Rfam assigns this 114-nucleotide RNA from Mizuhopecten yessoensis to the family "Potassium channel RNA editing signal".
This family represents a group of sequences related to the human potassium channel Kv1.1 hairpin element which directs the efficient modification of an adenosine to inosine by an adenosine deaminase acting on RNA (ADAR). The ADAR modification causes an isoleucine/valine recoding event which lies in the ion-conducting pore of the potassium channel. It is thought that this editing event targets the process of fast inactivation and allows a more rapid recovery from inactivation at negative potentials.
The family's consensus secondary structure is taken from published work.
Rfam classes the family as a cis-regulatory element.
[Rfam]
Nucleotides: 114
Base pairs, nucleotide, nucleotide: 001114002113004111005110007108008107009106010105011104013102014101015100016099018097019096021095022094037077038076039075040074049063050062051061
Number, partner (000 for none) and nucleotide at each position: 001114g002113u003000u004111g005110g006000a007108u008107a009106u010105g011104g012000u013102g014101a015100c016099a017000u018097g019096c020000g021095g022094c023000c024000u025000a026000u027000a028000g029000g030000a031000g032000u033000g034000u035000g036000g037077g038076g039075u040074a041000a042000a043000c044000u045000c046000g047000u048000g049063g050062g051061u052000u053000c054000a055000u056000u057000g058000u059000g060000u061051g062050c063049c064000a065000u066000u067000g068000c069000c070000g071000g072000u073000g074040u075039g076038u077037u078000g079000a080000c081000c082000a083000u084000u085000g086000c087000a088000u089000u090000g091000c092000c093000a094022g095021u096019g097018c098000c099016u100015g101014u102013c103000a104011u105010u106009g107008u108007g109000u110005c111004c112000a113002a114001c